The family of this 168-nucleotide RNA from bacterium D16-34 is "FMN riboswitch aptamer (RFN element)".
The match comes from Rfam's covariance-model search (99 bits).
From the family's description: The RFN element is a highly conserved domain that is found frequently in the 5'-untranslated regions of prokaryotic mRNAs that encode for flavin mononucleotide (FMN) biosynthesis and transport proteins.

[Rfam]
RNA sequence: AUUCUGUUUCAGGGCGAGGUGCAAUUCCUCACUGGCGGUAAUUCUUGGCGCAAAAUCUUGACAAUGGUUACGCCAAGCGAGUCCGCGAGCUCACAGCUCACUAAGUUGUGGGUUGAUUUCGGUGAGAUCCCGAAACCAACGGUAUAGUCCGGAUGAAAGAGACAGAGA
Numbered sequence: 001a002u003u004c005u006g007u008u009u010c011a012g013g014g015c016g017a018g019g020u021g022c023a024a025u026u027c028c029u030c031a032c033u034g035g036c037g038g039u040a041a042u043u044c045u046u047g048g049c050g051c052a053a054a055a056u057c058u059u060g061a062c063a064a065u066g067g068u069u070a071c072g073c074c075a076a077g078c079g080a081g082u083c084c085g086c087g088a089g090c091u092c093a094c095a096g097c098u099c100a101c102u103a104a105g106u107u108g109u110g111g112g113u114u115g116a117u118u119u120c121g122g123u124g125a126g127a128u129c130c131c132g133a134a135a136c137c138a139a140c141g142g143u144a145u146a147g148u149c150c151g152g153a154u155g156a157a158a159g160a161g162a163c164a165g166a167g168a
Stems, first nucleotide, its partner, number of pairs: 003166008017029003031148002033138002035086004089113003118134005140151003